[Rfam]
RNA: Bacterial large subunit ribosomal RNA, nucleotides 2780 to 3032
Organism: Cloacimonas acidaminivorans
RNA sequence: CGCAGGAAAUUUGAGGAGCACUGCAUUUAGUACGAGAGGACCGGUGUGGACGAACCUCUGGUGUACCGGUUGUGAUGCCAAUUGCAUUGCCGGGUAGCCAAGUUCGGUUAGGAUAACCGCUGAAAGCAUCUAAGCGGGAAGCCAGCUCCGAGAUAAGAUUUCCCUAUAGAGAGGUUGGAGACGACAACCUUGAUAGGUUACAGGUGUAAGCGCAGUAAUGCGUUGAGCCGAGUAAUACUAAUAACUCAAUUGG
Dot-bracket structure: ....((((((((..((((..(((((((...............))))))).(((((...(((....(((((((((((....))))))..)))))....))).)))))....((....(((((...........)))))....))..))))......))))))))..(..(((.(((((.......)))))....((((((((.((.....(((((....)))))....))..))))).)))....)))..)...